[Rfam]
RNA sequence: CCAAAGGCUCUUUUAAGAGCCACCCAUUUCUUCAUUAAAGGGCUG
Numbered sequence: 001c002c003a004a005a006g007g008c009u010c011u012u013u014u015a016a017g018a019g020c021c022a023c024c025c026a027u028u029u030c031u032u033c034a035u036u037a038a039a040g041g042g043c044u045g
Base pairs, nucleotide, nucleotide: 006021007020008019009018010017011016
This 45-nucleotide RNA from Vidua macroura belongs to the Rfam family "Histone 3' UTR stem-loop". Pairs were carried over by alignment from the consensus structure, which is taken from published work. NCBI's taxonomy places the organism under Eukaryota, Sarcopterygii, Dipnotetrapodomorpha, Neognathae, Vidua.